Shown here is a 66-nucleotide RNA from Mesocricetus auratus, a member of the family "Small nucleolar RNA SNORD109A". Humans have two copies of the SNORD109 gene, SNORD109A and SNORD109B. The base pairs follow the family's consensus structure, which was predicted with WAR.
RNA sequence: GGAUCAAUGAUGAUAACAAGUCUCUGAGGAUGCUGAUCAACUCAUCGCUAUGUCAAUCUGAGUUCC
Dot-bracket structure: (((.(........................................................).)))
The source organism's lineage runs through Eukaryota, Opisthokonta, Eutheria, Rodentia and Mesocricetus.